About this RNA
The family of this 101-nucleotide RNA sequence is "skipping-rope RNA". By type it is a small RNA.

[Rfam]
RNA sequence: GGCAUUUGAGGUGGUCAAUUUCGUGGCAGCCACACGCCGAUGGUAACGACAAGGGCUUUCGCCCUGAGAGAUGCAGGAGAACGCCACGCCUGCCAAAUGCU
Numbered sequence: 001g002g003c004a005u006u007u008g009a010g011g012u013g014g015u016c017a018a019u020u021u022c023g024u025g026g027c028a029g030c031c032a033c034a035c036g037c038c039g040a041u042g043g044u045a046a047c048g049a050c051a052a053g054g055g056c057u058u059u060c061g062c063c064c065u066g067a068g069a070g071a072u073g074c075a076g077g078a079g080a081a082c083g084c085c086a087c088g089c090c091u092g093c094c095a096a097a098u099g100c101u
Stems, first nucleotide, its partner, number of pairs: 001101008011033005024086004035068001036056003073093005